Rfam assigns this 110-nucleotide RNA from Dyadobacter koreensis to the family "SAM riboswitch aptamer (S box leader)". The match comes from Rfam's covariance-model search (72 bits).
RNA sequence: GAUUUAUAAAGAAGAGGCGAGAGAAUGGGCUCUACGAACCUCUGGCAACCUACUCCUGCGUCGGAGAAAGGUGCUAAUUCCCACCUAAGCUGUUUUAGGAGAUAUAAAAU
Numbered sequence: 001g002a003u004u005u006a007u008a009a010a011g012a013a014g015a016g017g018c019g020a021g022a023g024a025a026u027g028g029g030c031u032c033u034a035c036g037a038a039c040c041u042c043u044g045g046c047a048a049c050c051u052a053c054u055c056c057u058g059c060g061u062c063g064g065a066g067a068a069a070g071g072u073g074c075u076a077a078u079u080c081c082c083a084c085c086u087a088a089g090c091u092g093u094u095u096u097a098g099g100a101g102a103u104a105u106a107a108a109a110u
Stems, first nucleotide, its partner, number of pairs: 001110001003108006013043005021032003026083004044075004049071002051067001054064001079102001084099006